[Rfam]
RNA sequence: AAAUCAGGCUAAGUAGUAGAGCCGCAGGUAAAAUUAGCGUGUUUUCUUUGAACUUACCUGUUCCCUACUGCUUAAUAUGGCAU
Numbered sequence: 001a002a003a004u005c006a007g008g009c010u011a012a013g014u015a016g017u018a019g020a021g022c023c024g025c026a027g028g029u030a031a032a033a034u035u036a037g038c039g040u041g042u043u044u045u046c047u048u049u050g051a052a053c054u055u056a057c058c059u060g061u062u063c064c065c066u067a068c069u070g071c072u073u074a075a076u077a078u079g080g081c082a083u
Base pairs, nucleotide, nucleotide: 001083004080005079006078010074011073012072013071014070015069016068017067018066019065024061025060026059027058028057029056030055
A member of the RNA family "mir-252 microRNA precursor family" from Anisakis simplex, 83 nucleotides long. The organism belongs to Anisakis simplex complex, within Eukaryota. Clan: mir-252 microRNA precursor family.